[Rfam]
RNA: int-alpA RNA
Organism: Mangrovimicrobium sediminis
RNA sequence: ACAGCGCCUAGGAUGGCCCCCGAAAAGCCGUAACCCUAACGGCCUGGCGCUGCCAUCAAUUUGGGGG
Dot-bracket structure: .(((((((..((.......)).....((((...[[[[.[))))..))))))).........].]]]]